[Rfam]
RNA sequence: CACGUCAGCACGCUUUGCUGACAUGGCAACAAAUCGCGUCCAUGUAAGAGCGAUUUGUGUCCACGUCAACAAAGCGCGCUGACGUGG
Numbered sequence: 001c002a003c004g005u006c007a008g009c010a011c012g013c014u015u016u017g018c019u020g021a022c023a024u025g026g027c028a029a030c031a032a033a034u035c036g037c038g039u040c041c042a043u044g045u046a047a048g049a050g051c052g053a054u055u056u057g058u059g060u061c062c063a064c065g066u067c068a069a070c071a072a073a074g075c076g077c078g079c080u081g082a083c084g085u086g087g
Stems, first nucleotide, its partner, number of pairs: 001086009011076007019068003024063003029058009

MIR7486 microRNA precursor family: an 87-nucleotide RNA sequence from Gossypium schwendimanii. Its family is annotated with miRNA-mediated post-transcriptional gene silencing and RISC complex in the Gene Ontology.